[Rfam]
RNA sequence: GUCGCAAACGUGGGAGAGUGCAGCGCCUGAUGCGUUGCCGCCGAAGGCGCAAAUCCGCCCGGAAUCGCUCAGGCCCAUGGACCGCGUGCGCGAA
Numbered sequence: 001g002u003c004g005c006a007a008a009c010g011u012g013g014g015a016g017a018g019u020g021c022a023g024c025g026c027c028u029g030a031u032g033c034g035u036u037g038c039c040g041c042c043g044a045a046g047g048c049g050c051a052a053a054u055c056c057g058c059c060c061g062g063a064a065u066c067g068c069u070c071a072g073g074c075c076c077a078u079g080g081a082c083c084g085c086g087u088g089c090g091c092g093a094a
Stems, first nucleotide, its partner, number of pairs: 008087006020038004040074003043070002047068003054061001

Description
Rfam assigns this 94-nucleotide RNA sequence from Oceanococcus atlanticus to the family "Glycine riboswitch aptamer". The match comes from Rfam's covariance-model search (55 bits). Its family is annotated with glycine biosynthetic process in the Gene Ontology.